[Rfam]
RNA sequence: GUACCCUAUUAAGGUCGACACAGUGCUUUAAGAGCCUAACACAGAAAGGUAAAGUAAGUAAGUAAGUUUCCAUAAAACCCAGAGACAACAUUGUAAAAUUCCUCUUUGAAUCAUGUCUGGAGCCACAGUG
Number, nucleotide and partner (000 for none) at each position: 001g000002u051003a050004c049005c048006c000007u046008a000009u044010u043011a000012a000013g000014g040015u039016c000017g037018a000019c000020a000021c032022a000023g000024u000025g000026c000027u000028u000029u000030a000031a000032g021033a000034g000035c000036c000037u017038a000039a015040c014041a000042c000043a010044g009045a000046a007047a000048g005049g004050u003051a002052a000053a000054g000055u000056a000057a000058g000059u000060a000061a000062g000063u000064a000065a000066g124067u000068u122069u121070c120071c119072a118073u000074a000075a000076a000077a000078c000079c000080c108081a107082g106083a105084g104085a103086c000087a000088a100089c000090a000091u098092u097093g000094u000095a000096a000097a092098a091099u000100u088101c000102c000103u085104c084105u083106u082107u081108g080109a000110a000111u000112c000113a000114u000115g000116u000117c000118u072119g071120g070121a069122g068123c000124c066125a000126c000127a000128g000129u000130g000
This 130-nucleotide RNA sequence from Callithrix jacchus belongs to the Rfam family "Small nucleolar RNA SNORA26". The family has 76 seed sequences and 1,943 matches in Rfam 15.1. Pairs were carried over by alignment from the consensus structure, which was predicted with RNAalifold. The organism belongs to Callithrix, within Eukaryota.